[Rfam]
RNA sequence: GUCCCAAGCACGACAUUAAACUGCUUAUCAAUAUCCACUUCACCAACUGAUCAAUGGUGGCUUGAAGGUGUAUGUUGAUUACAAGUAAAUAACACGGCUGCCAUUCAAGCUGGUGGCUGCAUAUCAGAACGGAGAUGUUUCCGUCCGGAAUGCGGUCAGCUUUGCUAUGCCCAUUUGCAGCCAGAAU
Numbered sequence: 001g002u003c004c005c006a007a008g009c010a011c012g013a014c015a016u017u018a019a020a021c022u023g024c025u026u027a028u029c030a031a032u033a034u035c036c037a038c039u040u041c042a043c044c045a046a047c048u049g050a051u052c053a054a055u056g057g058u059g060g061c062u063u064g065a066a067g068g069u070g071u072a073u074g075u076u077g078a079u080u081a082c083a084a085g086u087a088a089a090u091a092a093c094a095c096g097g098c099u100g101c102c103a104u105u106c107a108a109g110c111u112g113g114u115g116g117c118u119g120c121a122u123a124u125c126a127g128a129a130c131g132g133a134g135a136u137g138u139u140u141c142c143g144u145c146c147g148g149a150a151u152g153c154g155g156u157c158a159g160c161u162u163u164g165c166u167a168u169g170c171c172c173a174u175u176u177g178c179a180g181c182c183a184g185a186a187u
Stems, first nucleotide, its partner, number of pairs: 028078005034072001036070005041059005060110006096182006116156005129144005

Background
The family of this 187-nucleotide RNA is "DUF2800 RNA". Pairs were carried over by alignment from the consensus structure, which is taken from published work.